RNA: MIR6288 microRNA precursor family
RNA sequence: UCAAAACUAGCCACUUUUUAUUUUCUAAUUGGUUCUUAUAAAUUUUUAACUCAUUAAGAAGCAAUUAGAAAAUGAUAAGUGGUUAGUUUUGG
Numbered sequence: 001u002c003a004a005a006a007c008u009a010g011c012c013a014c015u016u017u018u019u020a021u022u023u024u025c026u027a028a029u030u031g032g033u034u035c036u037u038a039u040a041a042a043u044u045u046u047u048a049a050c051u052c053a054u055u056a057a058g059a060a061g062c063a064a065u066u067a068g069a070a071a072a073u074g075a076u077a078a079g080u081g082g083u084u085a086g087u088u089u090u091g092g
Stems, first nucleotide, its partner, number of pairs: 002091015018075014033060006
Dot-bracket structure: .(((((((((((((((.((((((((((((((.((((((................)))))).)))))))))))))).))))))))))))))).